[Rfam]
RNA sequence: UUCCCUGUUUGACUACCACAUUUUCUCCUAAUAAGAGAUUUUAGUGGCUAUGUUUAUAGGAUAGAUUAAAAUUGCCAUGAUCUGAAGACAGAGGAUUUAUUUGUAUUCUCCUCCUCUAUAAAAUGGUUGAACCAAAAAAA
Numbered sequence: 001u002u003c004c005c006u007g008u009u010u011g012a013c014u015a016c017c018a019c020a021u022u023u024u025c026u027c028c029u030a031a032u033a034a035g036a037g038a039u040u041u042u043a044g045u046g047g048c049u050a051u052g053u054u055u056a057u058a059g060g061a062u063a064g065a066u067u068a069a070a071a072u073u074g075c076c077a078u079g080a081u082c083u084g085a086a087g088a089c090a091g092a093g094g095a096u097u098u099a100u101u102u103g104u105a106u107u108c109u110c111c112u113c114c115u116c117u118a119u120a121a122a123a124u125g126g127u128u129g130a131a132c133c134a135a136a137a138a139a140a
Base pairs, nucleotide, nucleotide: 004060005059006058007057016047017046018045019044074127075126076125077124092115093114094113095112
RNA: Small nucleolar RNA SNORA29